[Rfam]
RNA sequence: GGACUGACGGUUCUCCGAGCUCAGGUCCCUACGUCACGACAGAUAAGGGGCUUAAGCCGUGGCAUUUUGCCACCGGGGUAAGUGUAGAAAUGCGCUUGCCUCCCCUUGUUUUGGAAAGGUGAUCAUGUCCCAGCAGU
Dot-bracket structure: .....(.....((.((..(((.(((((((...(((......)))..))))))).))).(((((.....)))))..(((((((((((....)))))))))))((.........))...)).)).....).........

This 137-nucleotide sequence from Shewanella fodinae belongs to the Rfam family "Molybdenum/Tungsten riboswitch aptamer (Moco RNA motif)".
The match comes from Rfam's covariance-model search (94 bits).
Taxonomically the source falls in Shewanella (Bacteria, Pseudomonadati, Gammaproteobacteria, Alteromonadales).